[Rfam]
RNA sequence: CGACACCGGACGGGAGAGUCCGCACCACCUCGGUGCGGCGCCGAAGGGGCAAGCCUCCCCGCAACCUCUCAGGCCACCGGACCGCCCGGUCGAG
Numbered sequence: 001c002g003a004c005a006c007c008g009g010a011c012g013g014g015a016g017a018g019u020c021c022g023c024a025c026c027a028c029c030u031c032g033g034u035g036c037g038g039c040g041c042c043g044a045a046g047g048g049g050c051a052a053g054c055c056u057c058c059c060c061g062c063a064a065c066c067u068c069u070c071a072g073g074c075c076a077c078c079g080g081a082c083c084g085c086c087c088g089g090u091c092g093a094g
Stems, first nucleotide, its partner, number of pairs: 006089004011084003020038007040074003043070002047068003053062002